[Rfam]
RNA: PyrR binding site
RNA sequence: UGAACCUUUAAGAACAGUCCCGUGAGGCUGAGAAGGAAACGGACGCUUGAUCCCUAGGAAGAGGUAUAUACCUUUUUAACUAGCAGACGUAUGUCUAAAAAUCCUCUCGCCAAUCGGUGAGAGGAUUUUUUUGU
Numbered sequence: 001u002g003a004a005c006c007u008u009u010a011a012g013a014a015c016a017g018u019c020c021c022g023u024g025a026g027g028c029u030g031a032g033a034a035g036g037a038a039a040c041g042g043a044c045g046c047u048u049g050a051u052c053c054c055u056a057g058g059a060a061g062a063g064g065u066a067u068a069u070a071c072c073u074u075u076u077u078a079a080c081u082a083g084c085a086g087a088c089g090u091a092u093g094u095c096u097a098a099a100a101a102u103c104c105u106c107u108c109g110c111c112a113a114u115c116g117g118u119g120a121g122a123g124g125a126u127u128u129u130u131u132u133g134u
Stems, first nucleotide, its partner, number of pairs: 005036005015030005063095007072086002075083002098129014